[Rfam]
This 76-nucleotide sequence from Hermetia illucens belongs to the Rfam family "drz-agam-1 ribozyme". For this family Rfam cites "Widespread occurrence of self-cleaving ribozymes" (Webb et al., Science, 2009). Pairs were carried over by alignment from the consensus structure, which is taken from published work. It scores 42 bits against the family's covariance model.
Nucleotides: 076
Stems, first nucleotide, its partner, number of pairs: 009076003013072001015070001018030003041062007049055001
Number, partner (000 for none) and nucleotide at each position: 001000u002000g003000c004000c005000a006000a007000a008000c009076c010075c011074u012000g013072u014000c015070u016000c017000c018030a019029c020028c021000u022000c023000c024000a025000c026000g027000u028020g029019g030018u031000g032000a033000c034000a035000g036000c037000u038000a039000g040000g041062a042061g043060u044059u045058c046057u047056u048000u049055c050000u051000u052000a053000a054000u055049g056047a057046a058045g059044a060043g061042c062041u063000g064000c065000a066000g067000a068000c069000a070015a071000a072013g073000a074011a075010g076009g